[Rfam]
RNA sequence: UCGGGACACCGACCGUCCUCGGGCAGGGGCGGGGGACCCAGGUUUUUCCGCCGUCUCCCACGGCUUGGGGUGAAGCCGACCGCCGGAGCGAUCCGCGCGGCCGGCCGGGCCAACCUCACCGGUCCGAACCCGACAGCUCACCUCGCAGGCGUGCGGAGAGGGACA
Numbered sequence: 001u002c003g004g005g006a007c008a009c010c011g012a013c014c015g016u017c018c019u020c021g022g023g024c025a026g027g028g029g030c031g032g033g034g035g036a037c038c039c040a041g042g043u044u045u046u047u048c049c050g051c052c053g054u055c056u057c058c059c060a061c062g063g064c065u066u067g068g069g070g071u072g073a074a075g076c077c078g079a080c081c082g083c084c085g086g087a088g089c090g091a092u093c094c095g096c097g098c099g100g101c102c103g104g105c106c107g108g109g110c111c112a113a114c115c116u117c118a119c120c121g122g123u124c125c126g127a128a129c130c131c132g133a134c135a136g137c138u139c140a141c142c143u144c145g146c147a148g149g150c151g152u153g154c155g156g157a158g159a160g161g162g163a164c165a
Base pairs, nucleotide, nucleotide: 007151009149010148014028016026029146030145031144032143033142034141039067040066041065042064043063044062068131069130070129076104077103078102107125108124109123110122
Dot-bracket structure: ......(.((...(.(.........).)((((((....((((((.................))))))(((.....(((.......................)))..((((...........))))...))).........)))))).)).)..............